The family of this 133-nucleotide RNA sequence from Mesobacillus campisalis is "Ribosomal protein L20 leader". The organism belongs to Mesobacillus, within Bacteria. A reference for the family is Zengel and Lindahl (1994), "Diverse mechanisms for regulating ribosomal protein synthesis in Escherichia coli", Prog Nucleic Acid Res Mol Biol. The match comes from Rfam's covariance-model search (81 bits). The base pairs follow the family's consensus structure, which was predicted with CMfinder. Rfam links the family to the GO term regulation of gene expression.
RNA sequence: UGAGGAAAGAAGAAGCACCCGCUUCUCACCUGGCUGACGCAGAGUGGCAGUUGGCAGGUUUUACGUAAACGACUGUUUUAUUAUGUAUGGUUUCGUAAAGUGUGGGUGUUUUCGCCCGCACUUUUUUGUUUGC
Numbered sequence: 001u002g003a004g005g006a007a008a009g010a011a012g013a014a015g016c017a018c019c020c021g022c023u024u025c026u027c028a029c030c031u032g033g034c035u036g037a038c039g040c041a042g043a044g045u046g047g048c049a050g051u052u053g054g055c056a057g058g059u060u061u062u063a064c065g066u067a068a069a070c071g072a073c074u075g076u077u078u079u080a081u082u083a084u085g086u087a088u089g090g091u092u093u094c095g096u097a098a099a100g101u102g103u104g105g106g107u108g109u110u111u112u113c114g115c116c117c118g119c120a121c122u123u124u125u126u127u128g129u130u131u132g133c
Stems, first nucleotide, its partner, number of pairs: 011026006028059003036052003039048002101120008